[Rfam]
RNA: Small nucleolar RNA SNORA38
Organism: Carlito syrichta
RNA sequence: UCCUCCUACAAAGGCGUGUCUGUUGUUCCCUGUCUUUGGACACGUAAGAGUUGGAGGCAAAGAAAUGUGGACAUGGAGAAAUCUGGGACCAGCUUGCUCCCUGCAGGCCUAAGAUCAACCAUCCCACAUAA
Numbered sequence: 001u002c003c004u005c006c007u008a009c010a011a012a013g014g015c016g017u018g019u020c021u022g023u024u025g026u027u028c029c030c031u032g033u034c035u036u037u038g039g040a041c042a043c044g045u046a047a048g049a050g051u052u053g054g055a056g057g058c059a060a061a062g063a064a065a066u067g068u069g070g071a072c073a074u075g076g077a078g079a080a081a082u083c084u085g086g087g088a089c090c091a092g093c094u095u096g097c098u099c100c101c102u103g104c105a106g107g108c109c110u111a112a113g114a115u116c117a118a119c120c121a122u123c124c125c126a127c128a129u130a131a
Base pairs, nucleotide, nucleotide: 002057003056004055005054006053015044016043017042018041019040020039021038025029069124070123071122092108093107094106095105096104097103